[Rfam]
RNA sequence: GAUUCGGGAGUUCGCCGGUGGGACGGCGGGCAGGCAUGGAAUCCGCGAUAUCCGCGUUCGAAAGGCGUUCCCCCCGUGGCCCGACGGGUUGGCGC
Number, nucleotide and partner (000 for none) at each position: 001g043002a042003u041004u040005c039006g000007g000008g000009a000010g031011u030012u029013c028014g027015c026016c025017g024018g000019u000020g000021g000022g000023a000024c017025g016026g015027c014028g013029g012030g011031c010032a000033g000034g000035c000036a000037u000038g000039g005040a004041a003042u002043c001044c000045g000046c000047g000048a000049u000050a000051u000052c000053c000054g000055c000056g000057u000058u000059c000060g000061a000062a000063a000064g000065g000066c000067g095068u094069u000070c092071c091072c000073c088074c087075c086076g085077u000078g000079g000080c000081c000082c000083g000084a000085c076086g075087g074088g073089u000090u000091g071092g070093c000094g068095c067
RNA: Rhodo-rpoB RNA
Organism: Falsigemmobacter intermedius